[Rfam]
RNA sequence: ACGCGGCCAACGACGAACAAACCUGGAUGAAGGCGGGGGACCCACCGGUCCACCGAAAGAAGGACCAGGGACUGCACCUAGUUCCUUGGGGUGAAGCCGACACUCGUGUCGGCCGGGCAACCUCUCCAGCCCGAACCCGACAGCUGACCUCGCGGGCGCAGACGAGAGGAUUU
Numbered sequence: 001a002c003g004c005g006g007c008c009a010a011c012g013a014c015g016a017a018c019a020a021a022c023c024u025g026g027a028u029g030a031a032g033g034c035g036g037g038g039g040a041c042c043c044a045c046c047g048g049u050c051c052a053c054c055g056a057a058a059g060a061a062g063g064a065c066c067a068g069g070g071a072c073u074g075c076a077c078c079u080a081g082u083u084c085c086u087u088g089g090g091g092u093g094a095a096g097c098c099g100a101c102a103c104u105c106g107u108g109u110c111g112g113c114c115g116g117g118c119a120a121c122c123u124c125u126c127c128a129g130c131c132c133g134a135a136c137c138c139g140a141c142a143g144c145u146g147a148c149c150u151c152g153c154g155g156g157c158g159c160a161g162a163c164g165a166g167a168g169g170a171u172u173u
Base pairs, nucleotide, nucleotide: 002032033153034152035151036150037149038148043088044087089138090137091136097112098111099110100109115132116131117130118129
RNA: c-di-AMP riboswitch aptamer (ydaO/yuaA leader)